Shown here is a 33-nucleotide RNA from Flavobacterium geliluteum, a member of the family "DUF805b RNA". Clan: DUF805 clan.
RNA sequence: AACGGAGUAGCCGAAAACCGAUUAGAGUAGGCA
Dot-bracket structure: ..(((....[[[.....))).........]]].
Notes:
It is annotated as a cis-regulatory element. The organism belongs to Flavobacterium, within Bacteria.